[Rfam]
RNA sequence: AGCAUAAUUCGGCAAAGUAGGCGAAAGCCUAUGACGCAAAGCUACAGGGCCUUUCAACUGGCAGCCAGCUGCAAAA
Numbered sequence: 001a002g003c004a005u006a007a008u009u010c011g012g013c014a015a016a017g018u019a020g021g022c023g024a025a026a027g028c029c030u031a032u033g034a035c036g037c038a039a040a041g042c043u044a045c046a047g048g049g050c051c052u053u054u055c056a057a058c059u060g061g062c063a064g065c066c067a068g069c070u071g072c073a074a075a076a
Stems, first nucleotide, its partner, number of pairs: 012037002017032006040070004047066002049062003
RNA: c-di-GMP-I riboswitch aptamer